[Rfam]
RNA: SAH (S-adenosyl-L-homocysteine) riboswitch aptamer
RNA sequence: CUUCCCAAGGAGCGCUGCAGCCCCGGGGCGUGAAGUAACGCUGCCAGGGUCAGGCUUGGGGAAUUCAACUGCGCUCACUUGUU
Numbered sequence: 001c002u003u004c005c006c007a008a009g010g011a012g013c014g015c016u017g018c019a020g021c022c023c024c025g026g027g028g029c030g031u032g033a034a035g036u037a038a039c040g041c042u043g044c045c046a047g048g049g050u051c052a053g054g055c056u057u058g059g060g061g062a063a064u065u066c067a068a069c070u071g072c073g074c075u076c077a078c079u080u081g082u083u
Base pairs, nucleotide, nucleotide: 002062003061004060005059006058007057008056021049022048023047025045026044